glmS glucosamine-6-phosphate activated ribozyme aptamer: a 175-nucleotide RNA from Sporosarcina limicola.
The family's consensus secondary structure is taken from published work.
[Rfam]
RNA sequence: AAAACAGUUAAAGCGCCAGCGCUGAAGAAAUCGGAUAUAUUUAAUCUUCAGCAGACGAGGUGGAGGAGUAUCGAAGUUUUCGGCGGAUGCCUCCCGAUCGACAUUGCCCGAUUGAUAUUUUUGCUUGCAAAUCGUUUGAGCAAUCGAACGGACAAAGAAGCAAAAAGGCAAAAUU
Numbered sequence: 001a002a003a004a005c006a007g008u009u010a011a012a013g014c015g016c017c018a019g020c021g022c023u024g025a026a027g028a029a030a031u032c033g034g035a036u037a038u039a040u041u042u043a044a045u046c047u048u049c050a051g052c053a054g055a056c057g058a059g060g061u062g063g064a065g066g067a068g069u070a071u072c073g074a075a076g077u078u079u080u081c082g083g084c085g086g087a088u089g090c091c092u093c094c095c096g097a098u099c100g101a102c103a104u105u106g107c108c109c110g111a112u113u114g115a116u117a118u119u120u121u122u123g124c125u126u127g128c129a130a131a132u133c134g135u136u137u138g139a140g141c142a143a144u145c146g147a148a149c150g151g152a153c154a155a156a157g158a159a160g161c162a163a164a165a166a167g168g169c170a171a172a173a174u175u
Stems, first nucleotide, its partner, number of pairs: 021052007062094005071083004095114006119165007133150007